[Rfam]
RNA sequence: GCGUGGCUGAAUACCGUGUUCUUUUUAUCCAUAGUUUACACAGCCAGACACCAUGCGAAUGCCUAUGAUGGUGUGGGGAGUUCUUCCAUAGCUUAUCGUUUUCUAAAGUGGAUACAAAU
Numbered sequence: 001g002c003g004u005g006g007c008u009g010a011a012u013a014c015c016g017u018g019u020u021c022u023u024u025u026u027a028u029c030c031a032u033a034g035u036u037u038a039c040a041c042a043g044c045c046a047g048a049c050a051c052c053a054u055g056c057g058a059a060u061g062c063c064u065a066u067g068a069u070g071g072u073g074u075g076g077g078g079a080g081u082u083c084u085u086c087c088a089u090a091g092c093u094u095a096u097c098g099u100u101u102u103c104u105a106a107a108g109u110g111g112a113u114a115c116a117a118a119u
Stems, first nucleotide, its partner, number of pairs: 001056006014043001016041004060112001062110001063108002066105001067100007075092001078089001
Dot-bracket structure: ((((((.......(.((((..................)))).).......))))))...(.(((.((((((((.(..(..........)..).)))))))....).)).).).......
Shown here is a 119-nucleotide RNA sequence from Ursus americanus, a member of the family "Small nucleolar RNA SNORA15".
It is annotated as an H/ACA-box small nucleolar RNA.
The match comes from Rfam's covariance-model search (63 bits).
The literature on the family includes a 2001 paper in EMBO J by Huttenhofer et al., "RNomics: an experimental approach that identifies 201 candidates for novel, small, non-messenger RNAs in mouse".
Its family is annotated with RNA processing and nucleolus in the Gene Ontology.